[Rfam]
RNA sequence: CCCGGGGGACGACCCCCGGACCCCCGGCCGGAGGAGGGACGACCUUG
Numbered sequence: 001c002c003c004g005g006g007g008g009a010c011g012a013c014c015c016c017c018g019g020a021c022c023c024c025c026g027g028c029c030g031g032a033g034g035a036g037g038g039a040c041g042a043c044c045u046u047g
Stems, first nucleotide, its partner, number of pairs: 002019007035046004
Record summary:
Guanidine-II riboswitch aptamer (mini-ykkC): a 47-nucleotide sequence from Streptomyces sp. Ru73. The family's consensus secondary structure is taken from published work. It scores 35 bits against the family's covariance model. Simpler in structure and has fewer highly conserved nucleotide positions than the ykkC-yxkD leader. Despite this each of its two stem-loop structures directly bind free guanidine. Therefore, mini-ykkC RNA motif represents a distinct class of guanidine-sensing RNAs.